Annotation
U8 small nucleolar RNA: a 133-nucleotide sequence from Danio rerio. The match comes from Rfam's covariance-model search (83 bits). Lineage of the source: Eukaryota > Actinopterygii > Osteoglossocephalai > Cypriniformes > Danio.
RNA sequence: GCAUCAGUGAGGUUUAUCCUUACCUGUUGUCUUAAAAAUAAGACUACAGCACAUGAUGAUUGGAUUCUAUGAAUACGUGAUUAUAUUCUGUAUUCUUAAAGGGUUUGCAACACCUUUAUGAAUCCUGUCUGAC
Numbered sequence: 001g002c003a004u005c006a007g008u009g010a011g012g013u014u015u016a017u018c019c020u021u022a023c024c025u026g027u028u029g030u031c032u033u034a035a036a037a038a039u040a041a042g043a044c045u046a047c048a049g050c051a052c053a054u055g056a057u058g059a060u061u062g063g064a065u066u067c068u069a070u071g072a073a074u075a076c077g078u079g080a081u082u083a084u085a086u087u088c089u090g091u092a093u094u095c096u097u098a099a100a101g102g103g104u105u106u107g108c109a110a111c112a113c114c115u116u117u118a119u120g121a122a123u124c125c126u127g128u129c130u131g132a133c
Stems, first nucleotide, its partner, number of pairs: 024049003028046001030043005073089001075087001078083001094122001096120001099117004